[Rfam]
A member of the RNA family "Y RNA" from Otolemur garnettii, 109 nucleotides long.

RNA sequence: GACUGCUCAGAAGGUAGUGAGUUUUUUCAGUUAUUAUCCAGUCAGUUAGAACUCCUUCUUACUCACAGUACUUUCCCUCCUUCUUGCUACUGCACUUGACUAGUCUUAA
Dot-bracket structure: (((((.((.((..((((((((.......(((..(................................)..)))..........))))))...))..)))).)))))....
For this family Rfam cites "Caenorhabditis elegans embryos contain only one major species of Ro RNP" (Van Horn et al., RNA, 1995). The family's consensus secondary structure is taken from published work. The source organism's lineage runs through Eukaryota, Chordata, Vertebrata, Euarchontoglires and Otolemur. The family has 104 seed sequences and 26,986 matches in Rfam 15.1. It scores 44 bits against the family's covariance model. About the family: Y RNAs are components of the Ro ribonucleoprotein particle (Ro RNP), in association with Ro60 and La proteins. The Y RNAs and Ro60 and La proteins are well conserved, but the function of the Ro RNP is not known. In humans the RNA component can be one of four small RNAs -- hY1, hY3, hY4 and hY5. These small RNAs are predicted to fold into a conserved secondary structure containing three stem structures. The largest of the four, hY1, contains an additional hairpin. This family includes a significant number of annotated pseudogenes and the model is expected to discriminate poorly between real and Y RNA related pseudogenes.